[Rfam]
RNA sequence: UCCAUCGUGAGGUGGAAUCUGAAGGAAGAUGGAGGCAAAACUCCGGUCUGAGGAAUACGAAUCACAUCAGGCAUAUCAUGGGGACAAGUGUGCAAAACAACACAAAAUCCAAAAGAGUUGCGGAUAAGACUAUGAUAUGUAAAUGUGGCAGAUAUAUGGAGGGAAAGAGGUAUGAUC
Numbered sequence: 001u002c003c004a005u006c007g008u009g010a011g012g013u014g015g016a017a018u019c020u021g022a023a024g025g026a027a028g029a030u031g032g033a034g035g036c037a038a039a040a041c042u043c044c045g046g047u048c049u050g051a052g053g054a055a056u057a058c059g060a061a062u063c064a065c066a067u068c069a070g071g072c073a074u075a076u077c078a079u080g081g082g083g084a085c086a087a088g089u090g091u092g093c094a095a096a097a098c099a100a101c102a103c104a105a106a107a108u109c110c111a112a113a114a115g116a117g118u119u120g121c122g123g124a125u126a127a128g129a130c131u132a133u134g135a136u137a138u139g140u141a142a143a144u145g146u147g148g149c150a151g152a153u154a155u156a157u158g159g160a161g162g163g164a165a166a167g168a169g170g171u172a173u174g175a176u177c
Base pairs, nucleotide, nucleotide: 001016002015003014004013005012006011028177029176030175032173036169041161042160043159044158045157046153047152048151049150050149062148063147064146065145066144071140072139073138075136076135077134078133079132080131081130082110083109084108088103089102090101091100

The record is a 177-nucleotide sequence from Amedibacillus dolichus, which matches "Group II catalytic intron D1-D4-3" in Rfam. From the family's description: Group II introns are found in rRNA, tRNA and mRNA of organelles in fungi, plants and protists, and also in mRNA in bacteria. The source organism's lineage runs through Bacteria, Bacillati, Bacillota, Erysipelotrichaceae and Amedibacillus dolichus. It is one of the family's seed sequences.